[Rfam]
This 93-nucleotide RNA sequence from Rhodamnia argentea belongs to the Rfam family "Small nucleolar RNA U54". Its family is annotated with RNA processing and nucleolus in the Gene Ontology. The family is grouped with related families in Rfam's "U54 clan". Pairs were carried over by alignment from the consensus structure, which was predicted with PFOLD.
RNA sequence: GGCUCUGUGAUUACAUGGCCCUCUCUUGGGCAAUAUACGCUAUUCCGACUAGAAAGAUCAUGAGCUGAAAACACGAUGUUUCUUAUGAGAGCC
Numbered sequence: 001g002g003c004u005c006u007g008u009g010a011u012u013a014c015a016u017g018g019c020c021c022u023c024u025c026u027u028g029g030g031c032a033a034u035a036u037a038c039g040c041u042a043u044u045c046c047g048a049c050u051a052g053a054a055a056g057a058u059c060a061u062g063a064g065c066u067g068a069a070a071a072c073a074c075g076a077u078g079u080u081u082c083u084u085a086u087g088a089g090a091g092c093c
Base pairs, nucleotide, nucleotide: 001093002092003091004090005089